[Rfam]
RNA sequence: UUCAGGUAUGGUGACAUGGUACCAACAACAGUCCCUGGGAAGAUCGUUGGCAGUCUGUGUUCGCUUAGUGGCGUGCUUGUCAUAGCUCUUCCUGUACCUGUCAUAGUGUCCAAU
Numbered sequence: 001u002u003c004a005g006g007u008a009u010g011g012u013g014a015c016a017u018g019g020u021a022c023c024a025a026c027a028a029c030a031g032u033c034c035c036u037g038g039g040a041a042g043a044u045c046g047u048u049g050g051c052a053g054u055c056u057g058u059g060u061u062c063g064c065u066u067a068g069u070g071g072c073g074u075g076c077u078u079g080u081c082a083u084a085g086c087u088c089u090u091c092c093u094g095u096a097c098c099u100g101u102c103a104u105a106g107u108g109u110c111c112a113a114u
Stems, first nucleotide, its partner, number of pairs: 002113001005110001007108003011104001013102004018097001021095002037077002040074001050062001